RNA sequence: CAACGUUUGAAUCGGGUUUCGGGAUAAGCGGAUUUUUUUUUCAAAUAAUUCGUUGUCGACGAAACCUGCAUUGAGCGUUU
Numbered sequence: 001c002a003a004c005g006u007u008u009g010a011a012u013c014g015g016g017u018u019u020c021g022g023g024a025u026a027a028g029c030g031g032a033u034u035u036u037u038u039u040u041u042c043a044a045a046u047a048a049u050u051c052g053u054u055g056u057c058g059a060c061g062a063a064a065c066c067u068g069c070a071u072u073g074a075g076c077g078u079u080u
Stems, first nucleotide, its partner, number of pairs: 002079005013068009030051005
RNA: mir-981 microRNA precursor family
Organism: Polypedilum vanderplanki